[Rfam]
RNA: Mammalian CPEB3 ribozyme
RNA sequence: AGAGUUUACAAAUUUGAGGCCAUAGUAGAAGCACUCAUGACAGCCCUGUCAGAUUCCAGUGGAUCUGUAAAUUCUGCU
Number, nucleotide and partner (000 for none) at each position: 001a000002g000003a000004g000005u000006u000007u000008a000009c000010a000011a000012a000013u000014u000015u000016g046017a000018g045019g044020c043021c000022a000023u000024a078025g077026u076027a075028g074029a073030a072031g041032c000033a000034c000035u000036c000037a000038u000039g000040a000041c031042a000043g020044c019045c018046c016047u000048g000049u000050c067051a066052g065053a064054u063055u062056c061057c000058a000059g000060u000061g056062g055063a054064u053065c052066u051067g050068u000069a000070a000071a000072u030073u029074c028075u027076g026077c025078u024